[Rfam]
A member of the RNA family "c-di-AMP riboswitch aptamer (ydaO/yuaA leader)" from Micromonospora inyonensis, 150 nucleotides long. Lineage of the source: Bacteria > Bacillati > Actinomycetes > Micromonosporaceae > Micromonospora. Pairs were carried over by alignment from the consensus structure. It scores 69 bits against the family's covariance model.
RNA sequence: CGACGCACGUCGCCACAACGAGAAACGUCACCACAGCAGAGCGAGCCGGGGAACCACCAGCACCAUCGGGGUGAAUCCGUACGCCAGGUAGGGCGCUCCCUUCCCGCCCGAACCCGUCAGCUAACCCGGUAGGCGGUCAACGGAAGAAGG
Number, nucleotide and partner (000 for none) at each position: 001c000002g000003a000004c000005g000006c000007a000008c000009g000010u000011c135012g134013c133014c132015a000016c000017a000018a000019c043020g042021a000022g000023a000024a000025a000026c000027g000028u000029c000030a000031c000032c000033a000034c000035a000036g000037c000038a000039g000040a000041g000042c020043g019044a000045g130046c129047c128048g127049g126050g125051g000052a000053a000054c000055c068056a000057c000058c000059a000060g000061c000062a000063c000064c000065a000066u000067c000068g055069g115070g114071g113072u000073g000074a000075a000076u000077c088078c087079g000080u000081a000082c000083g000084c000085c000086a000087g078088g077089u000090a000091g109092g108093g107094c106095g000096c000097u000098c000099c000100c000101u000102u000103c000104c000105c000106g094107c093108c092109c091110g000111a000112a000113c071114c070115c069116g000117u000118c000119a000120g000121c000122u000123a000124a000125c050126c049127c048128g047129g046130u045131a000132g014133g013134c012135g011136g000137u000138c000139a000140a000141c000142g000143g000144a000145a000146g000147a000148a000149g000150g000